A member of the RNA family "Bacterial RNase P class A" from Chryseotalea sanaruensis, 385 nucleotides long.

[Rfam]
RNA sequence: GUCGCAAGUUGUUCUACCGCUGUCUCGAUUUAUCGGGAGGGAGGAAAGUCCGGGCAACUAAGAGCACCGCACCCUUUGAAAGGAGGGGAUUCCGCUAACACGGAAGCCAGACAGUGCCACAGAAAACAAACUACCCCAACUCGACUUGUCGAGAUCAGGGAAAAGGUGAAAAGGUGGGGUAAGAGCCCACCGUGCUUGAUGGUAACAUCGGCUGCAUGGCAAACCUUGCGGGUUGUAAGAUCAAAUAAGUUCCGAUUUUGGGUGCUUGAACCAACCUUCGACUUGUCGAAGUAUCGGAAUGGGUAGAUCGCUUAGAUAAAUGGUAGAAGUCCCCUGACUGAUCGGUCGGGGGAUACAGAACCUGGCUUAUAGACUUGCAUUUUUA
Dot-bracket structure: (..(((((((((((((((.((.((((((....)))))).))....[[[.[[[[[((((.....[[.((((((((((......)))))(.(((((......)))))..)((...(((((............((.(((..(.(...........).)..)))...)).......((((((.......))))))(.((.(((((....)))))))..)..)))..)))))))))))))...((((......((((((..........................((((]]..))))..)))))).....))))............)))))))................................]]]]]]]].).)))))))..)....
The family's RNA type in Rfam is ribozyme.